Shown here is a 96-nucleotide RNA from Nicotiana sylvestris, a member of the family "MIR6152 microRNA precursor family". Its family is annotated with RISC complex and miRNA-mediated post-transcriptional gene silencing in the Gene Ontology.

[Rfam]
RNA sequence: UGGACAAAUUAUUGUAUUCGAAUGUAUUCACGACGUGAAACAUGGAAUUACACUGUUUUUAAAUGGAAAGUGAAUCAAUUAGCAUAAUAGACUCCU
Number, nucleotide and partner (000 for none) at each position: 001u000002g095003g094004a093005c000006a000007a000008a000009u090010u089011a088012u087013u086014g085015u084016a000017u082018u081019c000020g080021a079022a000023u077024g076025u000026a075027u074028u073029c072030a071031c070032g000033a000034c065035g064036u063037g059038a058039a057040a056041c055042a054043u000044g000045g000046a000047a000048u000049u000050a000051c000052a000053c000054u042055g041056u040057u039058u038059u037060u000061a000062a000063a036064u035065g034066g000067a000068a000069a000070g031071u030072g029073a028074a027075u026076c024077a023078a000079u021080u020081a018082g017083c000084a015085u014086a013087a012088u011089a010090g009091a000092c000093u004094c003095c002096u000